The record is a 79-nucleotide sequence from Crinalium epipsammum, which matches "Cyano-1 RNA" in Rfam. The family's RNA type in Rfam is small RNA.
[Rfam]
RNA sequence: GGAACUGUGAGGAGUGAGAAUUGCAAUCGAAAAGCCCUUGAAGUCGAAACACGGACAGACGCUCAGGGGCUUUUCAAUU
Numbered sequence: 001g002g003a004a005c006u007g008u009g010a011g012g013a014g015u016g017a018g019a020a021u022u023g024c025a026a027u028c029g030a031a032a033a034g035c036c037c038u039u040g041a042a043g044u045c046g047a048a049a050c051a052c053g054g055a056c057a058g059a060c061g062c063u064c065a066g067g068g069g070c071u072u073u074u075c076a077a078u079u
Stems, first nucleotide, its partner, number of pairs: 030074007040064002043060003